Description:
Shown here is a 97-nucleotide RNA sequence, a member of the family "skipping-rope RNA". The family's consensus secondary structure is taken from published work.
[Rfam]
RNA sequence: ACUGUCCGAGGUGGAAAAUUUCGUACCCGUCCACACGCCGCUGGCUUGACAGGGGAAACCCGAGAGAUGCAGGAGAAUGGUACGCCUGCCGAACAGU
Numbered sequence: 001a002c003u004g005u006c007c008g009a010g011g012u013g014g015a016a017a018a019u020u021u022c023g024u025a026c027c028c029g030u031c032c033a034c035a036c037g038c039c040g041c042u043g044g045c046u047u048g049a050c051a052g053g054g055g056a057a058a059c060c061c062g063a064g065a066g067a068u069g070c071a072g073g074a075g076a077a078u079g080g081u082a083c084g085c086c087u088g089c090c091g092a093a094c095a096g097u
Base pairs, nucleotide, nucleotide: 001097002096003095004094005093007091008090011034012033013032014031015030024082025081026080027079036064037045038044039043069089070088071087072086073085